[Rfam]
RNA sequence: AUAUAAGCAAAUUUAACUUUUUAGGUUCAUUCAAUUAAUGAUGUACGUGGUCCAUAUUAUGAACCACAUACAUCAUUAAUUGAACGAAUCUAAAAAGUAAAAUUUGCUUAUAU
Numbered sequence: 001a002u003a004u005a006a007g008c009a010a011a012u013u014u015a016a017c018u019u020u021u022u023a024g025g026u027u028c029a030u031u032c033a034a035u036u037a038a039u040g041a042u043g044u045a046c047g048u049g050g051u052c053c054a055u056a057u058u059a060u061g062a063a064c065c066a067c068a069u070a071c072a073u074c075a076u077u078a079a080u081u082g083a084a085c086g087a088a089u090c091u092a093a094a095a096a097g098u099a100a101a102a103u104u105u106g107c108u109u110a111u112a113u
Stems, first nucleotide, its partner, number of pairs: 002112006009105004013100003017097008026088003030084014048066004

This 113-nucleotide RNA sequence from Medicago truncatula belongs to the Rfam family "MIR2593 microRNA precursor family". The match comes from Rfam's covariance-model search (104 bits). Rfam 15.1 lists 1,262 matches to the family in 6 species.